[Rfam]
A member of the RNA family "Group II catalytic intron D1-D4-6" from Mahella australiensis, 235 nucleotides long. It scores 102 bits against the family's covariance model. Rfam 15.1 lists 1,617 matches to the family in 661 species. For this family Rfam cites "The ins and outs of group II introns" (Bonen and Vogel, Trends Genet, 2001). Pairs were carried over by alignment from the consensus structure. The source organism's lineage runs through Bacteria, Bacillati, Mahellales, Mahella and Mahella australiensis.
RNA sequence: GAAUACUGGGCCCGGUAAAGUCUGGCCAACAGCCGGUACUCACUUCUGGAGCCAAAGCCGCGAGGCGAGGCUUAAGCGUGAAGAUGGAGAGCAAGCGAGCCGCAAUGCGAAAGCGUGAAGAGAUUCAGCCUCGUUAGAUGUUUAUGUUGAAGCUGAUGUCGUGCUAUGUACAGCAGGCAGCAAUCCGCAAACGUUAAUGGUGAGGAUGCGGAGGUUCAACCGGGGUCGUAGAGCG
Numbered sequence: 001g002a003a004u005a006c007u008g009g010g011c012c013c014g015g016u017a018a019a020g021u022c023u024g025g026c027c028a029a030c031a032g033c034c035g036g037u038a039c040u041c042a043c044u045u046c047u048g049g050a051g052c053c054a055a056a057g058c059c060g061c062g063a064g065g066c067g068a069g070g071c072u073u074a075a076g077c078g079u080g081a082a083g084a085u086g087g088a089g090a091g092c093a094a095g096c097g098a099g100c101c102g103c104a105a106u107g108c109g110a111a112a113g114c115g116u117g118a119a120g121a122g123a124u125u126c127a128g129c130c131u132c133g134u135u136a137g138a139u140g141u142u143u144a145u146g147u148u149g150a151a152g153c154u155g156a157u158g159u160c161g162u163g164c165u166a167u168g169u170a171c172a173g174c175a176g177g178c179a180g181c182a183a184u185c186c187g188c189a190a191a192c193g194u195u196a197a198u199g200g201u202g203a204g205g206a207u208g209c210g211g212a213g214g215u216u217c218a219a220c221c222g223g224g225g226u227c228g229u230a231g232a233g234c235g
Base pairs, nucleotide, nucleotide: 012036013035014034015033020030021029023203025201026200039086043083044082045081046080047078048077049073050072051071052070053069057066058065059064128226129225130224131223132222133221146220147219148218149217150216151215152178153177154176157172158171159170184212185211186210187209188208189207192204